[Rfam]
RNA: c-di-GMP-I-GGC riboswitch aptamer
RNA sequence: CCAGAUAAAGCCAAACCCGCUGUGAGGCGGGGACGGAAAGCUACGGAUCUCGGAAGAGACAGCCGGGUUGCCUAUA
Numbered sequence: 001c002c003a004g005a006u007a008a009a010g011c012c013a014a015a016c017c018c019g020c021u022g023u024g025a026g027g028c029g030g031g032g033a034c035g036g037a038a039a040g041c042u043a044c045g046g047a048u049c050u051c052g053g054a055a056g057a058g059a060c061a062g063c064c065g066g067g068u069u070g071c072c073u074a075u076a
Stems, first nucleotide, its partner, number of pairs: 003073002011036002016031006034062001039069004044065003048059002